[Rfam]
RNA sequence: GGCAUAUUUUGCGCAGGCGGAGCUCGACCGCCCGUUCCGCAGAUGAUUGAAUUUAUUGAGGCGCAACGCGCCGAUUACGGGGUCGAGCCGAUCUGCAGCGCUUUGCCGAUCGCCCAG
Numbered sequence: 001g002g003c004a005u006a007u008u009u010u011g012c013g014c015a016g017g018c019g020g021a022g023c024u025c026g027a028c029c030g031c032c033c034g035u036u037c038c039g040c041a042g043a044u045g046a047u048u049g050a051a052u053u054u055a056u057u058g059a060g061g062c063g064c065a066a067c068g069c070g071c072c073g074a075u076u077a078c079g080g081g082g083u084c085g086a087g088c089c090g091a092u093c094u095g096c097a098g099c100g101c102u103u104u105g106c107c108g109a110u111c112g113c114c115c116a117g
Stems, first nucleotide, its partner, number of pairs: 016032005078117001080115003089112002092109002095106004
ALIL pseudoknot: a 117-nucleotide sequence from Polymorphobacter multimanifer. By type it is a cis-regulatory element. A search with the family's covariance model found it, with a score of 103 bits.